RNA: Plastid-psbA-4 3UTR RNA
RNA sequence: AAAAGGAGCAAUAACCUCUUUCUUGUUAUAUCAAGAAGUGGUAUUGCUCCUUUUU
Numbered sequence: 001a002a003a004a005g006g007a008g009c010a011a012u013a014a015c016c017u018c019u020u021u022c023u024u025g026u027u028a029u030a031u032c033a034a035g036a037a038g039u040g041g042u043a044u045u046g047c048u049c050c051u052u053u054u055u
Stems, first nucleotide, its partner, number of pairs: 002053012020037006